[Rfam]
RNA sequence: UGUUAGGUUGGUGCAAAAGUAAUUAUGGUUUUUGCCAUUGAAAAUAAUGGCCAAAACCGUAAUUACUUUUGCACUAACCUAACA
Numbered sequence: 001u002g003u004u005a006g007g008u009u010g011g012u013g014c015a016a017a018a019g020u021a022a023u024u025a026u027g028g029u030u031u032u033u034g035c036c037a038u039u040g041a042a043a044a045u046a047a048u049g050g051c052c053a054a055a056a057c058c059g060u061a062a063u064u065a066c067u068u069u070u071g072c073a074c075u076a077a078c079c080u081a082a083c084a
Stems, first nucleotide, its partner, number of pairs: 001084032034051007
RNA: mir-548 microRNA precursor family
Organism: Aotus nancymaae